The record is a 56-nucleotide sequence from Paracidobacterium acidisoli, which matches "nadA riboswitch" in Rfam. The family's consensus secondary structure is taken from published work. Taxonomically the source falls in Paracidobacterium (Bacteria, Acidobacteriota, Terriglobales, Acidobacteriaceae). The match comes from Rfam's covariance-model search (63 bits). On this family, see Huang et al., RNA 2020: "Structure and ligand binding of the ADP-binding domain of the NAD(+) riboswitch". By type it is a small RNA.

RNA sequence: GGUUGCAACAUCCCCGUCGACUGGGUGGCAUAAGCCACAGCGAGCCGACUGCAGCC
Numbered sequence: 001g002g003u004u005g006c007a008a009c010a011u012c013c014c015c016g017u018c019g020a021c022u023g024g025g026u027g028g029c030a031u032a033a034g035c036c037a038c039a040g041c042g043a044g045c046c047g048a049c050u051g052c053a054g055c056c
Stems, first nucleotide, its partner, number of pairs: 001056007013042001014040001016049004021044002023041001025038005